Rfam assigns this 88-nucleotide RNA from Shimia thalassica to the family "Glycine riboswitch aptamer". From the family's description: This family represents the bacterial glycine riboswitch. The source organism's lineage runs through Bacteria, Pseudomonadati, Alphaproteobacteria, Rhodobacterales and Shimia.
[Rfam]
RNA sequence: GGACGUGAGUCGGGAGAACCGGAAGUAUCCGGUGCCGAAGGAGCAACCGCCCCGGAAACUCUCAGGCCGACAGGACCGACUCGCCGUA
Numbered sequence: 001g002g003a004c005g006u007g008a009g010u011c012g013g014g015a016g017a018a019c020c021g022g023a024a025g026u027a028u029c030c031g032g033u034g035c036c037g038a039a040g041g042a043g044c045a046a047c048c049g050c051c052c053c054g055g056a057a058a059c060u061c062u063c064a065g066g067c068c069g070a071c072a073g074g075a076c077c078g079a080c081u082c083g084c085c086g087u088a
Stems, first nucleotide, its partner, number of pairs: 006083008019032004034067003037063002041061003047055002

The base pairs follow the family's consensus structure.